[Rfam]
RNA sequence: AGCAGCCGGUAAACGACACCACUGCCGGCCUGUGCAGUAAUGCACUGACAAUAAAUCUCUUUAACUGCUGGGAACUCUGACCGUGAGAGACGAAGACAAUCAGCAACCAAGCCGGAUAACCGGAAGGCUCAACGACUAUCCCUACGGGGAGUACGGUCAAGCGACUGGAAACGGGAGACUCCUUAGAAAUAAGGAUGAAGAUAUAGUCUAAUCCUUGUAGAAAUACAAGG
Numbered sequence: 001a002g003c004a005g006c007c008g009g010u011a012a013a014c015g016a017c018a019c020c021a022c023u024g025c026c027g028g029c030c031u032g033u034g035c036a037g038u039a040a041u042g043c044a045c046u047g048a049c050a051a052u053a054a055a056u057c058u059c060u061u062u063a064a065c066u067g068c069u070g071g072g073a074a075c076u077c078u079g080a081c082c083g084u085g086a087g088a089g090a091c092g093a094a095g096a097c098a099a100u101c102a103g104c105a106a107c108c109a110a111g112c113c114g115g116a117u118a119a120c121c122g123g124a125a126g127g128c129u130c131a132a133c134g135a136c137u138a139u140c141c142c143u144a145c146g147g148g149g150a151g152u153a154c155g156g157u158c159a160a161g162c163g164a165c166u167g168g169a170a171a172c173g174g175g176a177g178a179c180u181c182c183u184u185a186g187a188a189a190u191a192a193g194g195a196u197g198a199a200g201a202u203a204u205a206g207u208c209u210a211a212u213c214c215u216u217g218u219a220g221a222a223a224u225a226c227a228a229g230g
Base pairs, nucleotide, nucleotide: 005029006028007027008026009025010024011023033044034043035042056178057177058176059175061173066105067104068103069102070101071100076096077095078094107127112122132209134208135207136206137205138204180195181194182193183192184191185190215228216227217226218225219224
RNA: Group I catalytic intron